[Rfam]
RNA sequence: GGAACAGUGGUAAUUCCUACGAUUAAGAAACCUGUUUGCAAAAGGAUCCGCCUUCCGGGGGGGUCAUCAAAAUUUUAUCAGGUGGGAAAUUCGGUGGAACACAGUGGAGCCUCGUCCUCCGGGCCAAUGUCAUUUUAGGCAUUGUCCCCUGCUCCUGAGAGAAGAACUAUCCUGGGGAACCAGUCUUUACCGACCGUUGUUAUCAGAAAUUUACGGAGUCUGGCUUAGGUCGGACCCCGAUGGGAACGGCAACGGUUGUUCCGUUUGACUUGUCGCCCGCCACGGCGUGCGUGUCAAGGUCUGUUGAGUGCAAUCGUAGGACGUCAUUCGUGGCGAACCCGAUACCGAUUACUGCUGCUGUUCC
Numbered sequence: 001g002g003a004a005c006a007g008u009g010g011u012a013a014u015u016c017c018u019a020c021g022a023u024u025a026a027g028a029a030a031c032c033u034g035u036u037u038g039c040a041a042a043a044g045g046a047u048c049c050g051c052c053u054u055c056c057g058g059g060g061g062g063g064u065c066a067u068c069a070a071a072a073u074u075u076u077a078u079c080a081g082g083u084g085g086g087a088a089a090u091u092c093g094g095u096g097g098a099a100c101a102c103a104g105u106g107g108a109g110c111c112u113c114g115u116c117c118u119c120c121g122g123g124c125c126a127a128u129g130u131c132a133u134u135u136u137a138g139g140c141a142u143u144g145u146c147c148c149c150u151g152c153u154c155c156u157g158a159g160a161g162a163a164g165a166a167c168u169a170u171c172c173u174g175g176g177g178a179a180c181c182a183g184u185c186u187u188u189a190c191c192g193a194c195c196g197u198u199g200u201u202a203u204c205a206g207a208a209a210u211u212u213a214c215g216g217a218g219u220c221u222g223g224c225u226u227a228g229g230u231c232g233g234a235c236c237c238c239g240a241u242g243g244g245a246a247c248g249g250c251a252a253c254g255g256u257u258g259u260u261c262c263g264u265u266u267g268a269c270u271u272g273u274c275g276c277c278c279g280c281c282a283c284g285g286c287g288u289g290c291g292u293g294u295c296a297a298g299g300u301c302u303g304u305u306g307a308g309u310g311c312a313a314u315c316g317u318a319g320g321a322c323g324u325c326a327u328u329c330g331u332g333g334c335g336a337a338c339c340c341g342a343u344a345c346c347g348a349u350u351a352c353u354g355c356u357g358c359u360g361u362u363c364c
Stems, first nucleotide, its partner, number of pairs: 001364004010358003015321007030083005045065005092347005097261004150163001152161003172183004195254007214239003322335005
Nuclear RNase P: a 364-nucleotide RNA sequence from Saccharomyces paradoxus. Its Rfam clan is "RNaseP clan". The sequence is in the family's curated seed alignment.